[Rfam]
RNA sequence: CCCGGAAUCCCGCCAGACCCGCGGCAGAGACGGGGGACCCAGAGUUCCCGGGCCUGUUCCCCGCAGGCCCUUGGGGUGAAGCCGCCACGUGCGGCCGGACGGCCUCGUCCGAACCCGACAGCUAACCUCGCAGGCGUUGAGAGGCAAACA
Numbered sequence: 001c002c003c004g005g006a007a008u009c010c011c012g013c014c015a016g017a018c019c020c021g022c023g024g025c026a027g028a029g030a031c032g033g034g035g036g037a038c039c040c041a042g043a044g045u046u047c048c049c050g051g052g053c054c055u056g057u058u059c060c061c062c063g064c065a066g067g068c069c070c071u072u073g074g075g076g077u078g079a080a081g082c083c084g085c086c087a088c089g090u091g092c093g094g095c096c097g098g099a100c101g102g103c104c105u106c107g108u109c110c111g112a113a114c115c116c117g118a119c120a121g122c123u124a125a126c127c128u129c130g131c132a133g134g135c136g137u138u139g140a141g142a143g144g145c146a147a148a149c150a
Base pairs, nucleotide, nucleotide: 011136012135013134014133018029020027031130032129033128034127035126040073041072074116075115076114082094083093084092085091097110098109099108100107
RNA: c-di-AMP riboswitch aptamer (ydaO/yuaA leader)
Organism: Paenarthrobacter sp. YJN-5